[Rfam]
Nucleotides: 095
Base pairs, nucleotide, nucleotide: 006083007082008081009080010079011045012044013043014042016039017032018031019030020029021028051076052075053074058069059068060067
Number, partner (000 for none) and nucleotide at each position: 001000a002000a003000a004000u005000u006083a007082c008081u009080u010079u011045a012044g013043g014042g015000g016039u017032g018031u019030u020029c021028g022000u023000u024000a025000a026000a027000u028021c029020g030019a031018a032017c033000u034000g035000a036000g037000a038000a039016a040000u041000a042014c043013c044012c045011u046000c047000u048000g049000a050000a051076c052075c053074u054000g055000a056000u057000g058069c059068g060067g061000u062000u063000a064000g065000u066000a067060c068059c069058g070000a071000c072000g073000a074053a075052g076051g077000g078000a079010a080009a081008a082007g083006u084000c085000c086000a087000u088000u089000u090000c091000u092000a093000c094000c095000c
This 95-nucleotide sequence from Flammeovirga pectinis belongs to the Rfam family "TPP riboswitch aptamer (THI element)". The family's consensus secondary structure is taken from published work.